[Rfam]
Rfam assigns this 74-nucleotide RNA sequence from Orthoflavivirus zikaense to the family "Flavivirus DB element". The family's consensus secondary structure is taken from published work. The source organism's lineage runs through Viruses, Kitrinoviricota, Flasuviricetes, Euflavivirus and Orthoflavivirus zikaense. It is annotated as a cis-regulatory element.

RNA sequence: UGGGGCCUGAACUGGAGACUAGCUGUGAAUCUCCAGCAGAGGGACUAGUGGUUAGAGGAGACCCCCCGGAAAAC
Numbered sequence: 001u002g003g004g005g006c007c008u009g010a011a012c013u014g015g016a017g018a019c020u021a022g023c024u025g026u027g028a029a030u031c032u033c034c035a036g037c038a039g040a041g042g043g044a045c046u047a048g049u050g051g052u053u054a055g056a057g058g059a060g061a062c063c064c065c066c067c068g069g070a071a072a073a074c
Base pairs, nucleotide, nucleotide: 001068002067003066004065005064006043007042012036013035014034015033016032017031018030050063051062052061053060